Guanidine-II riboswitch aptamer (mini-ykkC): a 48-nucleotide RNA sequence from Luteimonas chenhongjianii. About the family: Simpler in structure and has fewer highly conserved nucleotide positions than the ykkC-yxkD leader. Rfam 15.1 lists 1,589 matches to the family in 1,229 species. A search with the family's covariance model found it, with a score of 42 bits. The family's consensus secondary structure is taken from published work.
[Rfam]
RNA sequence: CGGCAGGGACGACCCUGCCGGGACACACCGCUCCCGGGGACGGCCCCA
Numbered sequence: 001c002g003g004c005a006g007g008g009a010c011g012a013c014c015c016u017g018c019c020g021g022g023a024c025a026c027a028c029c030g031c032u033c034c035c036g037g038g039g040a041c042g043g044c045c046c047c048a
Stems, first nucleotide, its partner, number of pairs: 001020008036047004